Shown here is a 121-nucleotide RNA sequence, a member of the family "DUF3800-I RNA". Actinobacteria, Firmicutes, Fusobacteria, Proteobacteria (1 example), Tenericutes (2 examples). The sequence is in the family's curated seed alignment.
RNA sequence: UUUAGGUACAGACAAUAGUGUACUGUUAAACAUUUAGCAACGGAUAGGAUUAUUAAGCGUAAUGUUAAGUGCGCCCGUCUAAAUGGAAGCCAUACCUUAAGGUGUGGCUUUUUUUAUUAGU
Dot-bracket structure: ......((((((((....))).)))).)..((((((...(((((((....)))...(((((........))))))))).))))))((((((((((......))))))))))..........
Numbered sequence: 001u002u003u004a005g006g007u008a009c010a011g012a013c014a015a016u017a018g019u020g021u022a023c024u025g026u027u028a029a030a031c032a033u034u035u036a037g038c039a040a041c042g043g044a045u046a047g048g049a050u051u052a053u054u055a056a057g058c059g060u061a062a063u064g065u066u067a068a069g070u071g072c073g074c075c076c077g078u079c080u081a082a083a084u085g086g087a088a089g090c091c092a093u094a095c096c097u098u099a100a101g102g103u104g105u106g107g108c109u110u111u112u113u114u115u116a117u118u119a120g121u
Stems, first nucleotide, its partner, number of pairs: 007028001008026004012021003031085006040078004044053003057074005086111010